[Rfam]
RNA sequence: UACUGUUACAGCUCUCUUAGAAUUUGUCUCGCAGGUUUUCGGGUCCUCGCUGGAAGACCCCC
Dot-bracket structure: .................................(((((((.(((....))).)))))))...
The family of this 62-nucleotide RNA from Prolemur simus is "U7 small nuclear RNA". Pairs were carried over by alignment from the consensus structure, which was predicted with PFOLD. NCBI's taxonomy places the organism under Eukaryota, Theria, Eutheria, Primates, Prolemur.